Guanidine-I riboswitch aptamer: a 126-nucleotide RNA sequence from Merismopedia glauca. The match comes from Rfam's covariance-model search (80 bits). This family represents a conserved RNA structure found upstream of the ykkC and yxkD genes in Bacillus subtilis and related genes in other bacteria. The function of this family is unclear although it has been suggested that it may function to switch on efflux pumps and detoxification systems in response to harmful environmental molecules.
RNA sequence: ACAAAUUGCUUCUAGGGUUCCGACUGGUUGUAAGUCAUGUCAAGCCAGUGUCUGGUCCAAGAGAAGCUAGCUAGCUAACCACAUAGAGUUUAGUUAGCCACACGGCGGGGGAAAAGCCCGGGAGAU
Dot-bracket structure: .......(((((..((...(((((((((...............))))))..).)).))....)))))..(((((((((...........)))))))))..(.[...(((.......))).)..]..